Shown here is a 236-nucleotide sequence from Gordonibacter sp. 28C, a member of the family "raiA RNA".
RNA sequence: UUCUUUCGAGUCUGUAGUUGCGGGGCGUUUGCCCCAAGUCCAUGGCAGAUGCGGUCGAAAGGAUCCACGUAAGUCGCACCGGCUCGGUCGGUCGGCGAUCAUGGCGCAUCCUAGAGGUAAGUCGCACCGCCCGUUUACAAACGCGACAUACGGCCGCGACGGGCGAGAGGGUUCCCGGUGCAAGCUUGGGCUCCGGUGCGCGAGUGUGGGGGCAAAGACUAGGUCAGUCGAAAGGG
Numbered sequence: 001u002u003c004u005u006u007c008g009a010g011u012c013u014g015u016a017g018u019u020g021c022g023g024g025g026c027g028u029u030u031g032c033c034c035c036a037a038g039u040c041c042a043u044g045g046c047a048g049a050u051g052c053g054g055u056c057g058a059a060a061g062g063a064u065c066c067a068c069g070u071a072a073g074u075c076g077c078a079c080c081g082g083c084u085c086g087g088u089c090g091g092u093c094g095g096c097g098a099u100c101a102u103g104g105c106g107c108a109u110c111c112u113a114g115a116g117g118u119a120a121g122u123c124g125c126a127c128c129g130c131c132c133g134u135u136u137a138c139a140a141a142c143g144c145g146a147c148a149u150a151c152g153g154c155c156g157c158g159a160c161g162g163g164c165g166a167g168a169g170g171g172u173u174c175c176c177g178g179u180g181c182a183a184g185c186u187u188g189g190g191c192u193c194c195g196g197u198g199c200g201c202g203a204g205u206g207u208g209g210g211g212g213c214a215a216a217g218a219c220u221a222g223g224u225c226a227g228u229c230g231a232a233a234g235g236g
Base pairs, nucleotide, nucleotide: 001236002235003234004233005232006231007230008229009228012227013226014225015221016220017219018218019217042207043206044205045055048110049109050108051107052106053105064104065103069099074094076092077091102214123200124199125198126197127196128165129164130163131162132161133160134159135158169193170192171191172190178185179184

A search with the family's covariance model found it, with a score of 144 bits.